RNA sequence: AACCCCCGGAAUACGAGUCACUUUGGUCGGUGGAGUCGUAUUUCCAGGGGUCAAAAGCAGGCGCUGGCCUGCAAUGAGUAUAGCCAUGAAGCGUAUCCAAGAUCAACAUCCCCUGCCGACCUU
Numbered sequence: 001a002a003c004c005c006c007c008g009g010a011a012u013a014c015g016a017g018u019c020a021c022u023u024u025g026g027u028c029g030g031u032g033g034a035g036u037c038g039u040a041u042u043u044c045c046a047g048g049g050g051u052c053a054a055a056a057g058c059a060g061g062c063g064c065u066g067g068c069c070u071g072c073a074a075u076g077a078g079u080a081u082a083g084c085c086a087u088g089a090a091g092c093g094u095a096u097c098c099a100a101g102a103u104c105a106a107c108a109u110c111c112c113c114u115g116c117c118g119a120c121c122u123u
Base pairs, nucleotide, nucleotide: 002051003050004049005048006047008045009044010043011042012040013039014038015037016036018033019032023119024118025117026116027115029113030112
Shown here is a 123-nucleotide RNA from Ladona fulva, a member of the family "Pseudoknot of the regulatory region of the repBA gene". Taxonomically the source falls in Ladona (Eukaryota, Bilateria, Insecta, Epiprocta). A reference for the family is Athanasopoulos et al. (1995), "The replication of an IncL/M plasmid is subject to antisense control", J Bacteriol.